[Rfam]
RNA: RNase MRP
Organism: Cicer arietinum
Nucleotides: 251
Base pairs, nucleotide, nucleotide: 002251003250004249005248006247008245009244010243011242014208015207016206017205018204019203021046022045023044024043025042026041027040050237051236052235054234055233056232057231068079069078070077071076102115103114104113105112106111118179124175125174126173127172128171129170130169132167133166135157136156137155144151145150210221211220212219213218
Number, partner (000 for none) and nucleotide at each position: 001000a002251g003250a004249c005248c006247a007000u008245g009244a010243a011242g012000c013000c014208g015207u016206g017205u018204g019203a020000a021046u022045g023044g024043g025042c026041c027040c028000a029000u030000g031000c032000u033000u034000u035000c036000a037000g038000c039000u040027g041026g042025g043024c044023u045022c046021a047000g048000g049000a050237a051236a052235g053000u054234c055233c056232c057231c058000g059000a060000g061000c062000c063000u064000u065000c066000u067000c068079u069078g070077c071076a072000g073000a074000a075000a076071u077070g078069u079068a080000g081000g082000c083000c084000u085000g086000g087000u088000a089000a090000c091000g092000g093000g094000u095000a096000a097000a098000u099000c100000u101000u102115c103114g104113a105112g106111c107000u108000u109000g110000g111106g112105c113104u114103u115102g116000c117000u118179u119000c120000a121000u122000a123000c124175u125174u126173c127172g128171g129170u130169g131000u132167g133166a134000g135157g136156g137155c138000u139000g140000a141000g142000a143000c144151a145150c146000g147000u148000g149000u150145g151144u152000g153000g154000a155137g156136c157135c158000g159000u160000u161000g162000c163000a164000a165000g166133u167132c168000u169130u170129g171128c172127c173126g174125a175124a176000g177000a178000u179118a180000a181000u182000u183000g184000g185000c186000u187000a188000a189000u190000u191000g192000c193000c194000u195000a196000c197000a198000g199000u200000c201000a202000u203019u204018c205017a206016c207015a208014u209000g210221g211220u212219u213218g214000u215000u216000u217000g218213c219212a220211a221210c222000u223000u224000a225000c226000a227000g228000a229000a230000c231057g232056g233055g234054g235052c236051u237050u238000a239000u240000g241000u242011c243010u244009u245008c246000u247006u248005g249004g250003u251002c